Rfam assigns this 401-nucleotide RNA from Croceivirga radicis to the family "transfer-messenger RNA". Pairs were carried over by alignment from the consensus structure, which is taken from published work. Rfam's curators write: Bacterial tmRNA, also known as 10Sa RNA or SsrA, is named for its dual tRNA and mRNA-like properties. Its Rfam clan is "tRNA clan". The literature on the family includes a 2010 paper in RNA Biol by Mao et al., "Variations on the tmRNA gene". Lineage of the source: Bacteria > Pseudomonadati > Flavobacteriia > Flavobacteriaceae > Croceivirga.
RNA sequence: GGGGCCGACCGGUUUUGACAGCGAGACCAAUGGCGGUGUAAGCAUGCCGAGCUAUGGGAAUGAUGCUCGUAAAUACAAUGUCUCAACUUUUUUAAAUGGCGAGUCUAACUACGCUUUAGCUGCUUAAUUGACUGAAUUAUAGUAAGUCCAAGCCUAGUCGCGCAAGGCGCGAAAGCUGAAUGUUCCAUGGUAGCCCUUGUUGAUGGCGACCAGUUUAGGAGCACCAUAAAAGUCAACACCGAAUUGUUUGUGCUUCGGUAACAAUUCUAAACUAAAGAAGCUAAGCUUAAGAUAGGCGGUUUUGGGUCGGUCUUAAGUCGAAAAAUGAACCAAGACUAAGCAUGUAGAAAGCUCAGUUAUUGCUUGUUUGGACGAGGGUUCGAAUCCCUCCGGCUCCACUU
Numbered sequence: 001g002g003g004g005c006c007g008a009c010c011g012g013u014u015u016u017g018a019c020a021g022c023g024a025g026a027c028c029a030a031u032g033g034c035g036g037u038g039u040a041a042g043c044a045u046g047c048c049g050a051g052c053u054a055u056g057g058g059a060a061u062g063a064u065g066c067u068c069g070u071a072a073a074u075a076c077a078a079u080g081u082c083u084c085a086a087c088u089u090u091u092u093u094a095a096a097u098g099g100c101g102a103g104u105c106u107a108a109c110u111a112c113g114c115u116u117u118a119g120c121u122g123c124u125u126a127a128u129u130g131a132c133u134g135a136a137u138u139a140u141a142g143u144a145a146g147u148c149c150a151a152g153c154c155u156a157g158u159c160g161c162g163c164a165a166g167g168c169g170c171g172a173a174a175g176c177u178g179a180a181u182g183u184u185c186c187a188u189g190g191u192a193g194c195c196c197u198u199g200u201u202g203a204u205g206g207c208g209a210c211c212a213g214u215u216u217a218g219g220a221g222c223a224c225c226a227u228a229a230a231a232g233u234c235a236a237c238a239c240c241g242a243a244u245u246g247u248u249u250g251u252g253c254u255u256c257g258g259u260a261a262c263a264a265u266u267c268u269a270a271a272c273u274a275a276a277g278a279a280g281c282u283a284a285g286c287u288u289a290a291g292a293u294a295g296g297c298g299g300u301u302u303u304g305g306g307u308c309g310g311u312c313u314u315a316a317g318u319c320g321a322a323a324a325a326u327g328a329a330c331c332a333a334g335a336c337u338a339a340g341c342a343u344g345u346a347g348a349a350a351g352c353u354c355a356g357u358u359a360u361u362g363c364u365u366g367u368u369u370g371g372a373c374g375a376g377g378g379u380u381c382g383a384a385u386c387c388c389u390c391c392g393g394c395u396c397c398a399c400u401u
Stems, first nucleotide, its partner, number of pairs: 001397007019370003024365002027362001031359004036354001038352002043344005048069005055085005181223006188212004193207003199237006241267007252281005285318009295308003299336007374390005